U4atac minor spliceosomal RNA: a 127-nucleotide RNA from Heterotrigona itama. The family is grouped with related families in Rfam's "U4 clan". Rfam links the family to the GO terms pre-mRNA 5'-splice site binding, U4atac snRNP and spliceosomal tri-snRNP complex assembly. From the family's description: U4atac is an essential component of the minor U12-type spliceosome complex which is required for removal of the rarer class of eukaryotic introns (AT-AC, U12-type). A search with the family's covariance model found it, with a score of 87 bits. The base pairs follow the family's consensus structure, which is taken from published work. For this family Rfam cites "Evolutionary conservation of minor U12-type spliceosome between plants and humans" (Lorkovic et al., RNA, 2005).
RNA sequence: UCUAUCCUUGUCUUUGGGGAGCAAAGUAUUCAAUGAUCGUUUAGUGAGGAUACUGUUGCUAAAGCCCAUUAUGAUAUUAAAACCCGCAUCCACGCGCAUUGUGCCGUGAGAUGCAAUUUUUGCAAGC
Numbered sequence: 001u002c003u004a005u006c007c008u009u010g011u012c013u014u015u016g017g018g019g020a021g022c023a024a025a026g027u028a029u030u031c032a033a034u035g036a037u038c039g040u041u042u043a044g045u046g047a048g049g050a051u052a053c054u055g056u057u058g059c060u061a062a063a064g065c066c067c068a069u070u071a072u073g074a075u076a077u078u079a080a081a082a083c084c085c086g087c088a089u090c091c092a093c094g095c096g097c098a099u100u101g102u103g104c105c106g107u108g109a110g111a112u113g114c115a116a117u118u119u120u121u122g123c124a125a126g127c
Stems, first nucleotide, its partner, number of pairs: 005019004021059004025054007038044001086114005091108001094104004